Overview
This 246-nucleotide sequence from Lachnospiraceae bacterium 10-1 belongs to the Rfam family "T-box leader".

RNA sequence: AUAAAGGCUGUGAAGGUGUAUAGUAGAGAAUUAUUUUCUAUCAGAGAGAGGAGGCAGAUGGCUGAAAGCUUCCUUUAGUUCAAAUAAUUUUGCGAAUUUCCCACCGGAGCUUUCGGGCCGAACAGAAUGCAUGAUUUAUUUAGGGUGCACUAUCGGGUAAGCUUGAACGUGACACGCGUUAAGUGAAUGGAGAGUCUGUCUUUGACAGGAACUUGGGUGGUACCGCGGAUUAAUUUCGUCCCUUGU
Number, nucleotide and partner (000 for none) at each position: 001a000002u000003a000004a000005a000006g000007g110008c109009u000010g000011u000012g000013a000014a000015g105016g104017u103018g102019u000020a000021u000022a000023g000024u000025a000026g093027a000028g091029a090030a089031u000032u000033a000034u000035u000036u000037u000038c000039u000040a079041u078042c000043a000044g000045a000046g000047a000048g000049a000050g073051g072052a071053g070054g069055c068056a000057g000058a000059u000060g000061g000062c000063u000064g000065a000066a000067a000068g055069c054070u053071u052072c051073c050074u000075u000076u000077a000078g041079u040080u000081c000082a000083a000084a000085u000086a000087a000088u000089u030090u029091u028092g000093c026094g000095a000096a000097u000098u000099u000100c000101c000102c018103a017104c016105c015106g000107g000108a000109g008110c007111u000112u000113u166114c165115g164116g163117g162118c161119c000120g000121a000122a000123c000124a000125g000126a000127a000128u000129g000130c000131a000132u000133g000134a000135u000136u000137u000138a000139u000140u000141u000142a000143g000144g000145g000146u000147g000148c000149a000150c000151u000152a000153u000154c000155g000156g000157g000158u000159a000160a000161g118162c117163u116164u115165g114166a113167a000168c178169g177170u176171g000172a000173c000174a000175c000176g170177c169178g168179u000180u000181a000182a000183g000184u000185g000186a000187a000188u000189g000190g000191a000192g000193a000194g000195u209196c208197u207198g206199u205200c204201u000202u000203u000204g200205a199206c198207a197208g196209g195210a000211a000212c000213u000214u000215g242216g241217g240218u000219g000220g000221u000222a000223c000224c000225g239226c238227g237228g236229a235230u000231u000232a000233a000234u000235u229236u228237c227238g226239u225240c217241c216242c215243u000244u000245g000246u000
About this RNA:
Rfam describes the family as follows. Uncharged tRNA acts as the effector for transcription antitermination of genes in the T-box leader family. T-boxes are found upstream of many aminoacyl-tRNA synthetase genes and some amino acid biosynthetic genes usually in Gram-positive bacteria. The anticodon of a specific tRNA base pairs to a specifier sequence within the T-box motif, and the NCCA acceptor tail of the tRNA base pairs to a conserved bulge in the T-box antiterminator hairpin. It scores 112 bits against the family's covariance model. The family's RNA type in Rfam is cis-regulatory leader.